[Rfam]
RNA sequence: GUUAUGGAAGAUGAUGUGAUGGUGUCCCAUAUUCUUACUGGUUUAGAUUCAGAUUACAAUCCAGUAGUCUCAUCUAUUAUGGGUCGCACUGAUGAUAUCCCGAUGAGUGAUCUUUUCUCUCAACUUAUGUCCUAUG
Numbered sequence: 001g002u003u004a005u006g007g008a009a010g011a012u013g014a015u016g017u018g019a020u021g022g023u024g025u026c027c028c029a030u031a032u033u034c035u036u037a038c039u040g041g042u043u044u045a046g047a048u049u050c051a052g053a054u055u056a057c058a059a060u061c062c063a064g065u066a067g068u069c070u071c072a073u074c075u076a077u078u079a080u081g082g083g084u085c086g087c088a089c090u091g092a093u094g095a096u097a098u099c100c101c102g103a104u105g106a107g108u109g110a111u112c113u114u115u116u117c118u119c120u121c122a123a124c125u126u127a128u129g130u131c132c133u134a135u136g
Stems, first nucleotide, its partner, number of pairs: 003136003088108003092104002
Rfam assigns this 136-nucleotide sequence from Digitaria exilis to the family "Small nucleolar RNA Z247". The family has 8 seed sequences and 7,071 matches in Rfam 15.1. A reference for the family is Chen et al. (2003), "The high diversity of snoRNAs in plants: identification and comparative study of 120 snoRNA genes from Oryza sativa", Nucleic Acids Res.